[Rfam]
RNA sequence: AAACCGAAAAGGCAAAAUCCGGGGAACCGGAUGACGCAAAGCCACCUCCCAGGCCGGGCAGAGGGGCCGCCGAA
Numbered sequence: 001a002a003a004c005c006g007a008a009a010a011g012g013c014a015a016a017a018u019c020c021g022g023g024g025a026a027c028c029g030g031a032u033g034a035c036g037c038a039a040a041g042c043c044a045c046c047u048c049c050c051a052g053g054c055c056g057g058g059c060a061g062a063g064g065g066g067c068c069g070c071c072g073a074a
Stems, first nucleotide, its partner, number of pairs: 012037002017032006041067003045064003049058002
Dot-bracket structure: ...........((...((((((....))))))...))...(((.(((.((......))...)))))).......
Rfam assigns this 74-nucleotide RNA from Pelobacter propionicus to the family "c-di-GMP-I riboswitch aptamer". Taxonomically the source falls in Pelobacter propionicus (Bacteria, Pseudomonadati, Thermodesulfobacteriota, Desulfuromonadaceae).